MIR9563 microRNA precursor family: a 123-nucleotide RNA sequence from Brassica napus. Lineage of the source: Eukaryota > Embryophyta > Spermatophyta > rosids > Brassica. Its family is annotated with miRNA-mediated post-transcriptional gene silencing and RISC complex in the Gene Ontology. The family's consensus secondary structure was predicted with RNAalifold.

[Rfam]
RNA sequence: GGAAUAUAGAAAACUAUCUCUAACUUUUAACUAAAAAAACUAAGAACCGGCUCUUAAAUAAAAUAUUUAAGAGCCGGUUUUUAGUUUUUUAGUUAAAAAUUAAGAGACAGUUUCUUAUAUUCC
Numbered sequence: 001g002g003a004a005u006a007u008a009g010a011a012a013a014c015u016a017u018c019u020c021u022a023a024c025u026u027u028u029a030a031c032u033a034a035a036a037a038a039a040c041u042a043a044g045a046a047c048c049g050g051c052u053c054u055u056a057a058a059u060a061a062a063a064u065a066u067u068u069a070a071g072a073g074c075c076g077g078u079u080u081u082u083a084g085u086u087u088u089u090u091a092g093u094u095a096a097a098a099a100u101u102a103a104g105a106g107a108c109a110g111u112u113u114c115u116u117a118u119a120u121u122c123c
Stems, first nucleotide, its partner, number of pairs: 001123009011113005017107005022101002025098014040084007
Dot-bracket structure: (((((((((.(((((.(((((((.((((((((((((((.(((((((...............................))))))))))))))))))))).)).))))).))))).)))))))))